[Rfam]
RNA sequence: GAUUUCAACUGAAAAAGUCAUUAACAACAAAGUUGUAUAACUCAUCAAGAUCUAUAACUUUUAUUUUGGUCAUUUCUUUAUCCGACAAAGUGAUAGUAACAUGGUUCACAAAAUUGACAUAUCUGUGUUAUGGUUUAUAGAACCAGAUGAAAGAUAUAUGAAUUUUGUGAACAAUGUUACUAACACUUUAUCGGAUGAAGAAAUGACCAAAAUAAAAGUUAUAGACUUUGAUGAAUUAUACAACUUUGUUGUUGAUGAAUUUUUCAGUUGAAAUC
Numbered sequence: 001g002a003u004u005u006c007a008a009c010u011g012a013a014a015a016a017g018u019c020a021u022u023a024a025c026a027a028c029a030a031a032g033u034u035g036u037a038u039a040a041c042u043c044a045u046c047a048a049g050a051u052c053u054a055u056a057a058c059u060u061u062u063a064u065u066u067u068g069g070u071c072a073u074u075u076c077u078u079u080a081u082c083c084g085a086c087a088a089a090g091u092g093a094u095a096g097u098a099a100c101a102u103g104g105u106u107c108a109c110a111a112a113a114u115u116g117a118c119a120u121a122u123c124u125g126u127g128u129u130a131u132g133g134u135u136u137a138u139a140g141a142a143c144c145a146g147a148u149g150a151a152a153g154a155u156a157u158a159u160g161a162a163u164u165u166u167g168u169g170a171a172c173a174a175u176g177u178u179a180c181u182a183a184c185a186c187u188u189u190a191u192c193g194g195a196u197g198a199a200g201a202a203a204u205g206a207c208c209a210a211a212a213u214a215a216a217a218g219u220u221a222u223a224g225a226c227u228u229u230g231a232u233g234a235a236u237u238a239u240a241c242a243a244c245u246u247u248g249u250u251g252u253u254g255a256u257g258a259a260u261u262u263u264u265c266a267g268u269u270g271a272a273a274u275c
Stems, first nucleotide, its partner, number of pairs: 014262003018258004023253002026250002030246011042234001044232006051225003055221013069207007077199005083193003087189006094182006101175002104172009114162002117159001119157004131145006